[Rfam]
RNA sequence: AAGGUACUAUACAACUGGCGGAGCAAUAUGGAAUCAACCAUAAUGGAGUAUAGUGCUGUAUUUUAGCCGACCGCCUGGGCAGAUAGU
Number, nucleotide and partner (000 for none) at each position: 001a000002a000003g057004g056005u055006a054007c053008u052009a051010u050011a049012c048013a000014a000015c045016u000017g075018g074019c073020g072021g071022a000023g000024c000025a000026a000027u000028a041029u040030g039031g038032a000033a000034u000035c000036a000037a000038c031039c030040a029041u028042a000043a000044u000045g015046g000047a000048g012049u011050a010051u009052a008053g007054u006055g005056c004057u003058g000059u000060a000061u000062u000063u000064u082065a000066g080067c079068c078069g000070a000071c021072c020073g019074c018075c017076u000077g000078g068079g067080c066081a000082g064083a000084u000085a000086g000087u000